[Rfam]
Annotation: This 166-nucleotide RNA sequence from Trichonephila clavata belongs to the Rfam family "Wolbachia sRNA 46". Pairs were carried over by alignment from the consensus structure.

RNA sequence: CAUUCCAGUGUCCCUAUGAUGUCAUCCCAGUGCUUGACACUGGGAUCUAGCAAGCUUUGCUUGCAAAUAAGUCUAAUACGCGUCGCGUUUUAUGCCAAAACACAAUUGGAGUUACAUGCAAAAUAGAUCCCAGUGUCAAGCACUGGGAUGACAAAAAAGGAGCACU
Numbered sequence: 001c002a003u004u005c006c007a008g009u010g011u012c013c014c015u016a017u018g019a020u021g022u023c024a025u026c027c028c029a030g031u032g033c034u035u036g037a038c039a040c041u042g043g044g045a046u047c048u049a050g051c052a053a054g055c056u057u058u059g060c061u062u063g064c065a066a067a068u069a070a071g072u073c074u075a076a077u078a079c080g081c082g083u084c085g086c087g088u089u090u091u092a093u094g095c096c097a098a099a100a101c102a103c104a105a106u107u108g109g110a111g112u113u114a115c116a117u118g119c120a121a122a123a124u125a126g127a128u129c130c131c132a133g134u135g136u137c138a139a140g141c142a143c144u145g146g147g148a149u150g151a152c153a154a155a156a157a158a159g160g161a162g163c164a165c166u
Stems, first nucleotide, its partner, number of pairs: 008165004020153030
Dot-bracket structure: .......((((........((((((((((((((((((((((((((((((..........................................................................))))))))))))))))))))))))))))))........)))).